This 103-nucleotide sequence from Helianthus annuus belongs to the Rfam family "Small nucleolar RNA R12". It is annotated as a C/D-box small nucleolar RNA. The base pairs follow the family's consensus structure, which was predicted with PFOLD. The family has 9 seed sequences and 992 matches in Rfam 15.1. It scores 45 bits against the family's covariance model. Its family is annotated with nucleolus and RNA processing in the Gene Ontology.

[Rfam]
RNA sequence: AUGAGGAUGGUGAAAUAAAUCAUUCGGAUUCCCAAUGAUUUUCUCUUUCUAAUAGUUUUUAUUUGAAGAGAAAGGUGAUCUUACAACUUUAUUUUUGACUCAU
Numbered sequence: 001a002u003g004a005g006g007a008u009g010g011u012g013a014a015a016u017a018a019a020u021c022a023u024u025c026g027g028a029u030u031c032c033c034a035a036u037g038a039u040u041u042u043c044u045c046u047u048u049c050u051a052a053u054a055g056u057u058u059u060u061a062u063u064u065g066a067a068g069a070g071a072a073a074g075g076u077g078a079u080c081u082u083a084c085a086a087c088u089u090u091a092u093u094u095u096u097g098a099c100u101c102a103u
Stems, first nucleotide, its partner, number of pairs: 001103005